This 141-nucleotide sequence from Rhynchospora breviuscula belongs to the Rfam family "MIR390 microRNA precursor family". The source organism's lineage runs through Eukaryota, Streptophytina, Embryophyta, Spermatophyta and Rhynchospora. Rfam 15.1 lists 649 matches to the family in 206 species. A search with the family's covariance model found it, with a score of 86 bits. Gene Ontology terms of the family: RISC complex and miRNA-mediated post-transcriptional gene silencing.
RNA sequence: CGGAUGGAUCCGUAAAGCUCAGGAGGGAUAGCGCCAUGGUGAGCAGUGAAGUUGCAAUGCGCGCAUACAUAUAUAUAUGUUGGCUACUUUACUUAAUUGCCUAUAUGGCGCUAUCUAUCCUGAGUUUCAUGGUUUCUUCCU
Number, nucleotide and partner (000 for none) at each position: 001c000002g000003g000004a000005u000006g000007g000008a000009u000010c132011c000012g000013u000014a000015a000016a126017g125018c124019u123020c122021a121022g120023g119024a118025g000026g116027g115028a114029u113030a112031g111032c110033g109034c108035c107036a106037u105038g104039g000040u000041g000042a000043g000044c000045a000046g000047u000048g000049a000050a000051g000052u000053u000054g000055c000056a000057a000058u000059g000060c000061g000062c000063g000064c000065a000066u000067a000068c000069a000070u000071a000072u000073a000074u000075a000076u000077a000078u000079g000080u000081u000082g000083g000084c000085u000086a000087c000088u000089u000090u000091a000092c000093u000094u000095a000096a000097u000098u000099g000100c000101c000102u000103a000104u038105a037106u036107g035108g034109c033110g032111c031112u030113a029114u028115c027116u026117a000118u024119c023120c022121u021122g020123a019124g018125u017126u016127u000128c000129a000130u000131g000132g010133u000134u000135u000136c000137u000138u000139c000140c000141u000